[Rfam]
This 108-nucleotide RNA sequence from Mikania micrantha belongs to the Rfam family "mir-166 microRNA precursor family". Gene Ontology terms of the family: miRNA-mediated post-transcriptional gene silencing and RISC complex. Rfam 15.1 lists 2,599 matches to the family in 229 species. This family represents the plant microRNA (miRNA) precursor mir-166. Taxonomically the source falls in Mikania (Eukaryota, Tracheophyta, Gunneridae, Heliantheae alliance). For this family Rfam cites "MicroRNAs in plants" (Reinhart et al., Genes Dev, 2002).

RNA sequence: AUUGUCAGGAAUGUCGCCUGGCACGAAGCACUUAUACUUACCUUGUCGCAAACUUCAUGCUUAUGAUAAUGGCGUAACGGCUUCGGACCAGGCUUCAUUCCUCACAAA
Numbered sequence: 001a002u003u004g005u006c007a008g009g010a011a012u013g014u015c016g017c018c019u020g021g022c023a024c025g026a027a028g029c030a031c032u033u034a035u036a037c038u039u040a041c042c043u044u045g046u047c048g049c050a051a052a053c054u055u056c057a058u059g060c061u062u063a064u065g066a067u068a069a070u071g072g073c074g075u076a077a078c079g080g081c082u083u084c085g086g087a088c089c090a091g092g093c094u095u096c097a098u099u100c101c102u103c104a105c106a107a108a
Base pairs, nucleotide, nucleotide: 002107003106004105005104007102008101009100010099011098012097013096016093017092018091019090020089021088024085025084026083